Shown here is a 110-nucleotide sequence from Virgibacillus pantothenticus, a member of the family "Guanidine-I riboswitch aptamer". Gene Ontology term of the family: regulation of gene expression. The organism belongs to Virgibacillus, within Bacteria. Rfam describes the family as follows. This family represents a conserved RNA structure found upstream of the ykkC and yxkD genes in Bacillus subtilis and related genes in other bacteria.
RNA sequence: AUAAUCAUUUUCUAGGGUUCCGCAGAUACAAGUAAGUAGCUAUCUGGACUGGACCAAGAGAAAAUGCACGGUUCAUUACGUGUACACGGAGGGAUAAAAGCCCGGGAGGA
Numbered sequence: 001a002u003a004a005u006c007a008u009u010u011u012c013u014a015g016g017g018u019u020c021c022g023c024a025g026a027u028a029c030a031a032g033u034a035a036g037u038a039g040c041u042a043u044c045u046g047g048a049c050u051g052g053a054c055c056a057a058g059a060g061a062a063a064a065u066g067c068a069c070g071g072u073u074c075a076u077u078a079c080g081u082g083u084a085c086a087c088g089g090a091g092g093g094a095u096a097a098a099a100g101c102c103c104g105g106g107a108g109g110a
Stems, first nucleotide, its partner, number of pairs: 007065006015055002020052002022049001023046006066083005085105001087108001091103003